[Rfam]
RNA sequence: CUGAACCGACAGGGGAGCGCGCAGCGCUGAGAGUGCGGGAGACCGCAGACCCUCACACCUGAUCUGGGUAAUGCCAGCGAAGGAAGUCGACCGUCGUCGUAC
Numbered sequence: 001c002u003g004a005a006c007c008g009a010c011a012g013g014g015g016a017g018c019g020c021g022c023a024g025c026g027c028u029g030a031g032a033g034u035g036c037g038g039g040a041g042a043c044c045g046c047a048g049a050c051c052c053u054c055a056c057a058c059c060u061g062a063u064c065u066g067g068g069u070a071a072u073g074c075c076a077g078c079g080a081a082g083g084a085a086g087u088c089g090a091c092c093g094u095c096g097u098c099g100u101a102c
Stems, first nucleotide, its partner, number of pairs: 007089004011053004017027004034047005058083003064077004